[Rfam]
RNA sequence: GGUCCUGGCCAGCUUUGCAGGGUGGGCAGUCGGCCGGUGUCUCCUACGAGCAGCUGUGCAAACCCAUGCAAAGCUGACCGUGGCC
Numbered sequence: 001g002g003u004c005c006u007g008g009c010c011a012g013c014u015u016u017g018c019a020g021g022g023u024g025g026g027c028a029g030u031c032g033g034c035c036g037g038u039g040u041c042u043c044c045u046a047c048g049a050g051c052a053g054c055u056g057u058g059c060a061a062a063c064c065c066a067u068g069c070a071a072a073g074c075u076g077a078c079c080g081u082g083g084c085c
Base pairs, nucleotide, nucleotide: 003083004082006080007079008078010076011075012074013073014072015071016070017069018068019067020065021064023061026059027058028057032055033054034053
Record summary
mir-19 microRNA precursor family: an 85-nucleotide RNA from Mola mola. NCBI's taxonomy places the organism under Eukaryota, Opisthokonta, Eumetazoa, Euteleosteomorpha, Mola. The family has 106 seed sequences and 2,337 matches in Rfam 15.1. Pairs were carried over by alignment from the consensus structure, which was predicted with RNAalifold. Rfam links the family to the GO terms RISC complex and miRNA-mediated post-transcriptional gene silencing.